A member of the RNA family "Small nucleolar RNA SNORA13" from Pipistrellus kuhlii, 139 nucleotides long. ACA13 is a member of the H/ACA class of snoRNA that guide the sites of modification of uridines to pseudouridines. The family is grouped with related families in Rfam's "SNORA13 clan". Rfam links the family to the GO terms nucleolus and RNA processing. Pairs were carried over by alignment from the consensus structure, which was predicted with CMfinder.
RNA sequence: AGCCUUUGUGUUGCCCAUUCACUUUUGGAAACUAGUGAAUGUGGUGUCAAAAAAGGCGCAAACUACACACUUUACAGCCCUUUUCCUGCCCUUGAACUUGAUGUCUUUGGUGGAAGAGUUGUGUAAGUAUGUAACAGUU
Numbered sequence: 001a002g003c004c005u006u007u008g009u010g011u012u013g014c015c016c017a018u019u020c021a022c023u024u025u026u027g028g029a030a031a032c033u034a035g036u037g038a039a040u041g042u043g044g045u046g047u048c049a050a051a052a053a054a055g056g057c058g059c060a061a062a063c064u065a066c067a068c069a070c071u072u073u074a075c076a077g078c079c080c081u082u083u084u085c086c087u088g089c090c091c092u093u094g095a096a097c098u099u100g101a102u103g104u105c106u107u108u109g110g111u112g113g114a115a116g117a118g119u120u121g122u123g124u125a126a127g128u129a130u131g132u133a134a135c136a137g138u139u
Stems, first nucleotide, its partner, number of pairs: 002057006009049002012046004016041008069128004073123006084117002087114001089112001090110002094105002